A member of the RNA family "Mammalian CPEB3 ribozyme" from Geotrypetes seraphini, 78 nucleotides long. The match comes from Rfam's covariance-model search (39 bits).

[Rfam]
RNA sequence: AGUUCAAUUCCAGGUCUACGUCAAAAGUGUUUAUAUUGCAGGCCGUUGUGAGAUUCCUAAAAAUCUGUGAAUUCUGCU
Dot-bracket structure: ...........((((((..[.[[.[[(((.......)))))))).)....(((((......))))).....]].]].]
The source organism's lineage runs through Eukaryota, Bilateria, Teleostomi, Euteleostomi and Geotrypetes. About the family: The mammalian CPEB3 ribozyme is a self cleaving RNA located in the second intron of the CPEB3 gene which belongs to a family of genes regulating messenger RNA polyadenylation. Pairs were carried over by alignment from the consensus structure, which is taken from published work.